RNA sequence: AUGAGAAAAUCUCCGGAAUCUCUGCACUAAUUUUGAUGAUUCAUUUUAACCCUGAAUUUUCUGAUAACUGGAUAUUUUCUUU
Numbered sequence: 001a002u003g004a005g006a007a008a009a010u011c012u013c014c015g016g017a018a019u020c021u022c023u024g025c026a027c028u029a030a031u032u033u034u035g036a037u038g039a040u041u042c043a044u045u046u047u048a049a050c051c052c053u054g055a056a057u058u059u060u061c062u063g064a065u066a067a068c069u070g071g072a073u074a075u076u077u078u079c080u081u082u
Stems, first nucleotide, its partner, number of pairs: 003081004